[Rfam]
RNA sequence: AAUGAAAUAAAUUAAUUCGUCCGUAUAAUCUUGAUAAUAUGGUUCAAGAGUCUCUACCAGAGUACCGUAAAUCUCUGACUAUGGGUGGAUCCGUUUAAACU
Numbered sequence: 001a002a003u004g005a006a007a008u009a010a011a012u013u014a015a016u017u018c019g020u021c022c023g024u025a026u027a028a029u030c031u032u033g034a035u036a037a038u039a040u041g042g043u044u045c046a047a048g049a050g051u052c053u054c055u056a057c058c059a060g061a062g063u064a065c066c067g068u069a070a071a072u073c074u075c076u077g078a079c080u081a082u083g084g085g086u087g088g089a090u091c092c093g094u095u096u097a098a099a100c101u
Base pairs, nucleotide, nucleotide: 018087019086020085021084022083023082024081025080029049030048031047032046033045034044058077059076060075061074062073064072
The record is a 101-nucleotide RNA sequence from Clostridium aciditolerans, which matches "Purine riboswitch aptamer" in Rfam.